[Rfam]
RNA sequence: AUCGUUCAUCUUGCUUAUGAACAGUCCUUCUUAAAUAUGGGUUGAAGCAGGACGGAAGUAGGGAGUCAUCCUCAAGGAACGCGCC
Numbered sequence: 001a002u003c004g005u006u007c008a009u010c011u012u013g014c015u016u017a018u019g020a021a022c023a024g025u026c027c028u029u030c031u032u033a034a035a036u037a038u039g040g041g042u043u044g045a046a047g048c049a050g051g052a053c054g055g056a057a058g059u060a061g062g063g064a065g066u067c068a069u070c071c072u073c074a075a076g077g078a079a080c081g082c083g084c085c
Base pairs, nucleotide, nucleotide: 003081004080005079006078007077009052010051011050012049013048014047015046016045055082061072062071063070
The record is an 85-nucleotide RNA from Pseudanabaena sp. FACHB-2040, which matches "Glutamine riboswitch aptamer (glnA leader)" in Rfam. Rfam links the family to the GO term glutamine binding. A search with the family's covariance model found it, with a score of 44 bits. For this family Rfam cites "Bacterial aptamers that selectively bind glutamine" (Ames and Breaker, RNA Biol, 2011). Lineage of the source: Bacteria > Bacillati > Cyanobacteriota > Cyanophyceae > Pseudanabaena.